[Rfam]
RNA sequence: CGCUUAUAAAAUAAUACGACCUGUAUAACCUCAGAAUAUGGCUGAGGGUCUCUACCAGGAACCAUAAAAUCCUGAUUACAGAAAAUGAUUCGUUCAUU
Number, nucleotide and partner (000 for none) at each position: 001c000002g000003c000004u000005u000006a000007u000008a000009a000010a000011a000012u000013a000014a000015u000016a000017c000018g000019a000020c000021c081022u080023g079024u078025a077026u000027a000028a000029c047030c046031u045032c044033a043034g042035a000036a000037u000038a000039u000040g000041g000042c034043u033044g032045a031046g030047g029048g000049u000050c000051u000052c000053u000054a000055c000056c074057a073058g072059g071060a070061a000062c000063c000064a000065u000066a000067a000068a000069a000070u060071c059072c058073u057074g056075a000076u000077u025078a024079c023080a022081g021082a000083a000084a000085a000086u000087g000088a000089u000090u000091c000092g000093u000094u000095c000096a000097u000098u000